RNA sequence: CUACAAUUAAAGGAUAUUUCUUGUGACUGAGCAUAUACGGAAAUAUCUUGUAAUUGUUUGGU
Numbered sequence: 001c002u003a004c005a006a007u008u009a010a011a012g013g014a015u016a017u018u019u020c021u022u023g024u025g026a027c028u029g030a031g032c033a034u035a036u037a038c039g040g041a042a043a044u045a046u047c048u049u050g051u052a053a054u055u056g057u058u059u060g061g062u
Stems, first nucleotide, its partner, number of pairs: 003057007012048010024035002

The record is a 62-nucleotide RNA from Salmo salar, which matches "mir-7552 microRNA precursor family" in Rfam. Gene Ontology terms of the family: RISC complex and miRNA-mediated post-transcriptional gene silencing. Rfam's curators put it in the seed alignment. NCBI's taxonomy places the organism under Eukaryota, Metazoa, Salmoniformes, Salmoninae, Salmo.